[Rfam]
RNA sequence: CACCCACGACAGGGGAGCGCCUCCGAGCGCUGAGAGUGCGGUCCGACCGCAGACCCUCGAACCUGCUCCGGUUAGCACCGGCGAAGGGAGUCGAUCACCGAUGAGC
Numbered sequence: 001c002a003c004c005c006a007c008g009a010c011a012g013g014g015g016a017g018c019g020c021c022u023c024c025g026a027g028c029g030c031u032g033a034g035a036g037u038g039c040g041g042u043c044c045g046a047c048c049g050c051a052g053a054c055c056c057u058c059g060a061a062c063c064u065g066c067u068c069c070g071g072u073u074a075g076c077a078c079c080g081g082c083g084a085a086g087g088g089a090g091u092c093g094a095u096c097a098c099c100g101a102u103g104a105g106c
Base pairs, nucleotide, nucleotide: 007093008092009091010090011057012056013055014054017030018029019028020027037051038050039049040048041047062087063086064085068081069080070079071078

Record summary: This 106-nucleotide sequence from Lapillicoccus jejuensis belongs to the Rfam family "TPP riboswitch aptamer (THI element)". Rfam 15.1 lists 16,130 matches to the family in 8,693 species. It scores 60 bits against the family's covariance model. The base pairs follow the family's consensus structure, which is taken from published work.